[Rfam]
RNA sequence: AUUCCCAUUCUAGUACCACUACUUCAUUCUACAGAUUUAGUGGCUAUGCUAAUGGGAUAUAGUAACCUGCCAUUGUCUGAAGGGAAAUUACAUUUCAUGUUUUCCUAUAUGAAAUGGCAGUACAUAAAUAU
Numbered sequence: 001a002u003u004c005c006c007a008u009u010c011u012a013g014u015a016c017c018a019c020u021a022c023u024u025c026a027u028u029c030u031a032c033a034g035a036u037u038u039a040g041u042g043g044c045u046a047u048g049c050u051a052a053u054g055g056g057a058u059a060u061a062g063u064a065a066c067c068u069g070c071c072a073u074u075g076u077c078u079g080a081a082g083g084g085a086a087a088u089u090a091c092a093u094u095u096c097a098u099g100u101u102u103u104c105c106u107a108u109a110u111g112a113a114a115u116g117g118c119a120g121u122a123c124a125u126a127a128a129u130a131u
Stems, first nucleotide, its partner, number of pairs: 004056004016043004069118004087106001